[Rfam]
RNA: RAGATH-18 RNA
RNA sequence: CCUAUGGAGAGUACAAGAACUUGUGAGUAGUAUCUGCUUCGGCAGUGCGAAAGCAUACUCGAUGAAGUAGGAA
Numbered sequence: 001c002c003u004a005u006g007g008a009g010a011g012u013a014c015a016a017g018a019a020c021u022u023g024u025g026a027g028u029a030g031u032a033u034c035u036g037c038u039u040c041g042g043c044a045g046u047g048c049g050a051a052a053g054c055a056u057a058c059u060c061g062a063u064g065a066a067g068u069a070g071g072a073a
Base pairs, nucleotide, nucleotide: 001071002070003069004068005067009060010059011058012057013056022055023054024053030048031047032046035045